[Rfam]
RNA: MIR6217 microRNA precursor family
RNA sequence: UGGCUAUAGAAUAACUUAUUCUGUGGCCACUUUGAAUUACGAUAAUUACCAUACUAAUUUACGAGAUUACAGUAACUCCUUACUAAAUGAUUUACUAACCGUGAGUUGUAGUAACACGAGUAUCGUAAAUGCAUAUUCAUGUUAUCGUAAAUUGGUACAAAUAUUAUCGUAAAUCAAGGUGGCUAUAGAAUAAAUUAUUCUAUGGCCA
Numbered sequence: 001u002g003g004c005u006a007u008a009g010a011a012u013a014a015c016u017u018a019u020u021c022u023g024u025g026g027c028c029a030c031u032u033u034g035a036a037u038u039a040c041g042a043u044a045a046u047u048a049c050c051a052u053a054c055u056a057a058u059u060u061a062c063g064a065g066a067u068u069a070c071a072g073u074a075a076c077u078c079c080u081u082a083c084u085a086a087a088u089g090a091u092u093u094a095c096u097a098a099c100c101g102u103g104a105g106u107u108g109u110a111g112u113a114a115c116a117c118g119a120g121u122a123u124c125g126u127a128a129a130u131g132c133a134u135a136u137u138c139a140u141g142u143u144a145u146c147g148u149a150a151a152u153u154g155g156u157a158c159a160a161a162u163a164u165u166a167u168c169g170u171a172a173a174u175c176a177a178g179g180u181g182g183c184u185a186u187a188g189a190a191u192a193a194a195u196u197a198u199u200c201u202a203u204g205g206c207c208a
Stems, first nucleotide, its partner, number of pairs: 001208014016193018037172010052157011065146003069142003072138001074136001080128004087123003091119002093113005